[Rfam]
RNA: Streptomyces sRNA scr5239
RNA sequence: CUUCCGCCCUCACCGCACAGGAGGGUGGAUAGAGGUUCGAGGCGCUCUCUGCCCUGACUGCGCCCCGGCCUCCCCGCCGCGCUCAGCUAGCGGCACCGGGCCGCACACCCGGUGUCCCGAGCACGGUGCAGCUCCGGGCCGCAGCGCCGGGUGGGUUGAGGGUCCCGCCGCAGGCGC
Numbered sequence: 001c002u003u004c005c006g007c008c009c010u011c012a013c014c015g016c017a018c019a020g021g022a023g024g025g026u027g028g029a030u031a032g033a034g035g036u037u038c039g040a041g042g043c044g045c046u047c048u049c050u051g052c053c054c055u056g057a058c059u060g061c062g063c064c065c066c067g068g069c070c071u072c073c074c075c076g077c078c079g080c081g082c083u084c085a086g087c088u089a090g091c092g093g094c095a096c097c098g099g100g101c102c103g104c105a106c107a108c109c110c111g112g113u114g115u116c117c118c119g120a121g122c123a124c125g126g127u128g129c130a131g132c133u134c135c136g137g138g139c140c141g142c143a144g145c146g147c148c149g150g151g152u153g154g155g156u157u158g159a160g161g162g163u164c165c166c167g168c169c170g171c172a173g174g175c176g177c
Stems, first nucleotide, its partner, number of pairs: 003029004008024004032072004037068001039066001041064002044061002046057002077126003081122003086117001131145003135141002149171001150169006
Dot-bracket structure: ..((((.((((.........)))).))))..((((.(.(.((.((((........))..)).)).).)))))....(((.(((..(..............................)..))).)))....(((.((...)).)))...(((((((........)))))).)......